[Rfam]
RNA sequence: AAAAAAAAUGGGCGAAACGCCCAUCUUCUUCUAACUCUUGCAACCGGUGGUCGUACCUGAGCAGCAAAUGAAAAAAGCCGCACGCCCAGCGACUUUGUGAUUCUAGCCUUUU
Numbered sequence: 001a002a003a004a005a006a007a008a009u010g011g012g013c014g015a016a017a018c019g020c021c022c023a024u025c026u027u028c029u030u031c032u033a034a035c036u037c038u039u040g041c042a043a044c045c046g047g048u049g050g051u052c053g054u055a056c057c058u059g060a061g062c063a064g065c066a067a068a069u070g071a072a073a074a075a076a077g078c079c080g081c082a083c084g085c086c087c088a089g090c091g092a093c094u095u096u097g098u099g100a101u102u103c104u105a106g107c108c109u110u111u112u
Base pairs, nucleotide, nucleotide: 008024009023010022011021012020013019014018049102050101051100052099053098054097059095060094061093064090065089
RNA: Burkholderia sRNA Bp1_Cand612_SIPHT